Shown here is a 260-nucleotide sequence from Paenibacillus piri, a member of the family "T-box leader". Uncharged tRNA acts as the effector for transcription antitermination of genes in the T-box leader family. T-boxes are found upstream of many aminoacyl-tRNA synthetase genes and some amino acid biosynthetic genes usually in Gram-positive bacteria. The anticodon of a specific tRNA base pairs to a specifier sequence within the T-box motif, and the NCCA acceptor tail of the tRNA base pairs to a conserved bulge in the T-box antiterminator hairpin. A reference for the family is Grundy et al. (1994), "Interaction between the acceptor end of tRNA and the T box stimulates antitermination in the Bacillus subtilis tyrS gene: a new role for the discriminator base", J Bacteriol. It scores 94 bits against the family's covariance model. The family's RNA type in Rfam is cis-regulatory leader.

RNA sequence: AACAAAACAUUGACGGAGACAGUAUGAACCGGGAAUGCGCAGAGAGCCGAUGGAAGGUGCGAAUCGGACAUGACGGUUUUUACGGAGCACUCCAGAGUUGCUGAGCUGAACGAUGCGGAACGAUGCAUGUCCCCUCUGUAGGUGCAGCCGGGUAGAAACCGUUAUAUUUCGGGGUCUUGUCGACAAGACUCAUAAGGCUGUCAGUGCGAGCUUGCAGCGAAUUAGGGUGGUACCACGAAAAGCAACUUUUCGUCCCUUAU
Dot-bracket structure: ......((......((((.......((.......(((.........(((((...........))))).)))......))..........))))...))..(((.(((.................................))).))).(((.......)))...................................(((((.(........).))))).....((((.......(((((((.....)))))))))))...